[Rfam]
RNA sequence: AACUCAGCUAGGGAGAGUAUAACAUUCAUGUUGACGAGACCUAGACGAAACACAGAGGAAAAUUAUUAAUCACUGGAUAGUAUUAGUAAUGACUCUGUGUCCAUGA
Numbered sequence: 001a002a003c004u005c006a007g008c009u010a011g012g013g014a015g016a017g018u019a020u021a022a023c024a025u026u027c028a029u030g031u032u033g034a035c036g037a038g039a040c041c042u043a044g045a046c047g048a049a050a051c052a053c054a055g056a057g058g059a060a061a062a063u064u065a066u067u068a069a070u071c072a073c074u075g076g077a078u079a080g081u082a083u084u085a086g087u088a089a090u091g092a093c094u095c096u097g098u099g100u101c102c103a104u105g106a
Stems, first nucleotide, its partner, number of pairs: 002018004008044005026106005038046001050100008
This 106-nucleotide RNA belongs to the Rfam family "RAGATH-1 hammerhead ribozyme".